[Rfam]
RNA sequence: UGCGUCUGCUUGUUGUGCAGGAUUAGAACCUGUGGGUUCGAGCCGAGCGGCGUAGCUGCGACGCACUGUUAGCGCGUAGCGAUAACAGCCCAAGUGGAAGGAGCGUAGCGACGCAUUAUCCUGUACAACCCAUCA
Numbered sequence: 001u002g003c004g005u006c007u008g009c010u011u012g013u014u015g016u017g018c019a020g021g022a023u024u025a026g027a028a029c030c031u032g033u034g035g036g037u038u039c040g041a042g043c044c045g046a047g048c049g050g051c052g053u054a055g056c057u058g059c060g061a062c063g064c065a066c067u068g069u070u071a072g073c074g075c076g077u078a079g080c081g082a083u084a085a086c087a088g089c090c091c092a093a094g095u096g097g098a099a100g101g102a103g104c105g106u107a108g109c110g111a112c113g114c115a116u117u118a119u120c121c122u123g124u125a126c127a128a129c130c131c132a133u134c135a
Stems, first nucleotide, its partner, number of pairs: 015126007023118001033098001037093002040091001044060002067087005